[Rfam]
RNA sequence: CUAGUUUUGUCUUUGGUUAUCUAGCUGUAUGAUUUCAUUUAAUAUUUCAUAAAGCUAGGUUACCAAAGGCAAAAAUGG
Numbered sequence: 001c002u003a004g005u006u007u008u009g010u011c012u013u014u015g016g017u018u019a020u021c022u023a024g025c026u027g028u029a030u031g032a033u034u035u036c037a038u039u040u041a042a043u044a045u046u047u048c049a050u051a052a053a054g055c056u057a058g059g060u061u062a063c064c065a066a067a068g069g070c071a072a073a074a075a076u077g078g
Base pairs, nucleotide, nucleotide: 001078002077003076005074007072008071009070010069011068012067013066014065015064016063017062019060020059021058022057023056024055025054026053028051029050030049031048032047
The family of this 78-nucleotide RNA from Magallana gigas is "mir-9/mir-79 microRNA precursor family". The family's consensus secondary structure was predicted with RNAalifold. NCBI's taxonomy places the organism under Eukaryota, Protostomia, Lophotrochozoa, Ostreoidea, Magallana. Rfam 15.1 lists 5,647 matches to the family in 934 species. It scores 78 bits against the family's covariance model.